[Rfam]
RNA sequence: CUUGAGCGAGCCGAGCCACAGCGGCAGGUUCUCCGCCCGGCCCUGGCCGUACGUCUCCAGCAGCGCCUGCGCCUC
Dot-bracket structure: ..............(((.....))).....(.(....((...(((...(....)...)))...))...).)....

ASpks TB sRNA: a 75-nucleotide RNA from Kitasatospora sp. Root187. It is annotated as an antisense RNA. NCBI's taxonomy places the organism under Bacteria, Bacillati, Actinomycetes, Kitasatosporales, Kitasatospora. The match comes from Rfam's covariance-model search (76 bits). The base pairs follow the family's consensus structure, which is taken from published work.